[Rfam]
RNA: Mammalian CPEB3 ribozyme
Organism: Crocodylus porosus
RNA sequence: CCUGGCCACUGUGGGCCAUAGCAGAAGAGUACACAUCAUGAACCCUGUCAGGUAAUACUUGUGAAUACUGCU
Numbered sequence: 001c002c003u004g005g006c007c008a009c010u011g012u013g014g015g016c017c018a019u020a021g022c023a024g025a026a027g028a029g030u031a032c033a034c035a036u037c038a039u040g041a042a043c044c045c046u047g048u049c050a051g052g053u054a055a056u057a058c059u060u061g062u063g064a065a066u067a068c069u070g071c072u
Stems, first nucleotide, its partner, number of pairs: 013045003017040001020072005026066001027039001029037001049061005